[Rfam]
The record is a 98-nucleotide RNA from Nomascus leucogenys, which matches "Vault RNA" in Rfam. This family of RNAs are found as part of the enigmatic vault ribonucleoprotein complex. The complex consists of a major vault protein (MVP), two minor vault proteins (VPARP and TEP1), and several small untranslated RNA molecules. It has been suggested that the vault complex is involved in drug resistance. It scores 44 bits against the family's covariance model. The organism belongs to Nomascus, within Eukaryota.
RNA sequence: GGACUGGCUCUAUCUCAGGAGUUCCUUCCAUAAAGCAUCAACUUUCAAUUUCCCCCGCAGGGGUGGUUUGAGACCUGAGGGCACUCUCUAGUUCUUAG
Numbered sequence: 001g002g003a004c005u006g007g008c009u010c011u012a013u014c015u016c017a018g019g020a021g022u023u024c025c026u027u028c029c030a031u032a033a034a035g036c037a038u039c040a041a042c043u044u045u046c047a048a049u050u051u052c053c054c055c056c057g058c059a060g061g062g063g064u065g066g067u068u069u070g071a072g073a074c075c076u077g078a079g080g081g082c083a084c085u086c087u088c089u090a091g092u093u094c095u096u097a098g
Base pairs, nucleotide, nucleotide: 002093003092004091005090006089007088014081015080016079020076021075026072027071028070030068